[Rfam]
RNA sequence: UGAAUAAUUUAAAAAGAUUCUUGUAUAUUAUUGACGAUAGGGGUCAAGAGUUUCUACCAGGUUGCCGUAAAUAACCUGACUAUAGGAAUAGGUAUUUGUUGU
Numbered sequence: 001u002g003a004a005u006a007a008u009u010u011a012a013a014a015a016g017a018u019u020c021u022u023g024u025a026u027a028u029u030a031u032u033g034a035c036g037a038u039a040g041g042g043g044u045c046a047a048g049a050g051u052u053u054c055u056a057c058c059a060g061g062u063u064g065c066c067g068u069a070a071a072u073a074a075c076c077u078g079a080c081u082a083u084a085g086g087a088a089u090a091g092g093u094a095u096u097u098g099u100u101g102u
Stems, first nucleotide, its partner, number of pairs: 018088008029049001031047005058078007
A member of the RNA family "Purine riboswitch aptamer" from Sporomusa termitida, 102 nucleotides long. Taxonomically the source falls in Sporomusa (Bacteria, Negativicutes, Selenomonadales, Sporomusaceae). The family's consensus secondary structure is taken from published work. Rfam's curators write: Riboswitches are metabolite binding domains within certain messenger RNAs that serve as precision sensors for their corresponding targets.